Source information
Group II catalytic intron D1-D4-3: a 170-nucleotide RNA from Bradyrhizobium sp. BTAi1. Rfam describes the family as follows. Group II introns are found in rRNA, tRNA and mRNA of organelles in fungi, plants and protists, and also in mRNA in bacteria.

RNA sequence: GUCAUCGCGAGGUGGGGUCUGAAGACAGCGUGGAGCAAAGCCGCGGCCCGAUGAACAAACAGCGGAUGCGAGGCCUACCCGUCCGGACGAGCGAGCCGCCAAUCGCGAAGUCCACGGUCAUCAAGGGGCGGGGUGGUAAAUCCGACGGGUAUGCGGUGAAGGCGGUCGGU
Numbered sequence: 001g002u003c004a005u006c007g008c009g010a011g012g013u014g015g016g017g018u019c020u021g022a023a024g025a026c027a028g029c030g031u032g033g034a035g036c037a038a039a040g041c042c043g044c045g046g047c048c049c050g051a052u053g054a055a056c057a058a059a060c061a062g063c064g065g066a067u068g069c070g071a072g073g074c075c076u077a078c079c080c081g082u083c084c085g086g087a088c089g090a091g092c093g094a095g096c097c098g099c100c101a102a103u104c105g106c107g108a109a110g111u112c113c114a115c116g117g118u119c120a121u122c123a124a125g126g127g128g129c130g131g132g133g134u135g136g137u138a139a140a141u142c143c144g145a146c147g148g149g150u151a152u153g154c155g156g157u158g159a160a161g162g163c164g165g166u167c168g169g170u
Base pairs, nucleotide, nucleotide: 002015003014004013005012006011028170029169032166035163036162040157041156042155043154044153045152046150047149048148049147050146063144064143065142066141067140073137074136075135076133078132079131080130081129082128083127085113086112087111088110091106092105093104094103

Gene Ontology term of the family: Group II intron splicing.